[Rfam]
Shown here is an 85-nucleotide RNA sequence from Vitis rotundifolia, a member of the family "Small nucleolar RNA Z159/U59".
RNA sequence: GUCUCUGAUGAUGAUUAGUUGAAAAACUUUCGUUCUUCUGAUAAUAGAUCAUGAGGAAUGCUUUGGAGACCUGAACUGAAGGGAC
Numbered sequence: 001g002u003c004u005c006u007g008a009u010g011a012u013g014a015u016u017a018g019u020u021g022a023a024a025a026a027c028u029u030u031c032g033u034u035c036u037u038c039u040g041a042u043a044a045u046a047g048a049u050c051a052u053g054a055g056g057a058a059u060g061c062u063u064u065g066g067a068g069a070c071c072u073g074a075a076c077u078g079a080a081g082g083g084a085c
Base pairs, nucleotide, nucleotide: 003083004082005081006080